[Rfam]
RNA sequence: GGCGUGGGAUCGGGAGAGUCCGCACCGCAGCAGCUGCUGCGGUCGGCGCCGAAGGAGCAACCGCCCCGGAAUCUCUCAGGCACCAGGACCGGCCCCACGAA
Numbered sequence: 001g002g003c004g005u006g007g008g009a010u011c012g013g014g015a016g017a018g019u020c021c022g023c024a025c026c027g028c029a030g031c032a033g034c035u036g037c038u039g040c041g042g043u044c045g046g047c048g049c050c051g052a053a054g055g056a057g058c059a060a061c062c063g064c065c066c067c068g069g070a071a072u073c074u075c076u077c078a079g080g081c082a083c084c085a086g087g088a089c090c091g092g093c094c095c096c097a098c099g100a101a
Base pairs, nucleotide, nucleotide: 006096007095008094010092011091012090013089020046021045022044048081049080050079051077052076055075056074057073061069062068
Dot-bracket structure: .....(((.((((......(((.....................))).(((((..(((...((.....))...))))).))).......)))).))).....